[Rfam]
RNA sequence: CGUCCGGUGGAUUGCGACGGGCAGGAAGGCAGGCAUUGGCCGGCCUUCCUGCCCGCUUUCGGUUGCCGCUGACGGGAACACGUCA
Numbered sequence: 001c002g003u004c005c006g007g008u009g010g011a012u013u014g015c016g017a018c019g020g021g022c023a024g025g026a027a028g029g030c031a032g033g034c035a036u037u038g039g040c041c042g043g044c045c046u047u048c049c050u051g052c053c054c055g056c057u058u059u060c061g062g063u064u065g066c067c068g069c070u071g072a073c074g075g076g077a078a079c080a081c082g083u084c085a
Base pairs, nucleotide, nucleotide: 016057018055019054020053021052022051023050024049025048027046028045029044030043032041059072060071061070062069063068
A member of the RNA family "Chloroflexi-1 RNA" from Chloroflexus aggregans, 85 nucleotides long. Pairs were carried over by alignment from the consensus structure, which is taken from published work. NCBI's taxonomy places the organism under Bacteria, Chloroflexales, Chloroflexineae, Chloroflexus, Chloroflexus aggregans.